Description: A member of the RNA family "MIR7502 microRNA precursor family" from Gossypium australe, 124 nucleotides long. Pairs were carried over by alignment from the consensus structure, which was predicted with RNAalifold. Rfam links the family to the GO terms RISC complex and miRNA-mediated post-transcriptional gene silencing.

RNA sequence: UGUAAAAAUUUCAUCCAUUUGUAAAGUUAAAAACCGGUGUGAUUGACAGAAUAAUCAGCAUGUGUACCUCAUGUUGAUGUAGAUGACCAAUAUUUAACAAUAGAAAUUGAUGAAAUUUUUAACU
Numbered sequence: 001u002g003u004a005a006a007a008a009u010u011u012c013a014u015c016c017a018u019u020u021g022u023a024a025a026g027u028u029a030a031a032a033a034c035c036g037g038u039g040u041g042a043u044u045g046a047c048a049g050a051a052u053a054a055u056c057a058g059c060a061u062g063u064g065u066a067c068c069u070c071a072u073g074u075u076g077a078u079g080u081a082g083a084u085g086a087c088c089a090a091u092a093u094u095u096a097a098c099a100a101u102a103g104a105a106a107u108u109g110a111u112g113a114a115a116u117u118u119u120u121a122a123c124u
Stems, first nucleotide, its partner, number of pairs: 002123001003121013017107004022102002027097005
Lineage of the source: Eukaryota > rosids > Malvaceae > Malvoideae > Gossypium.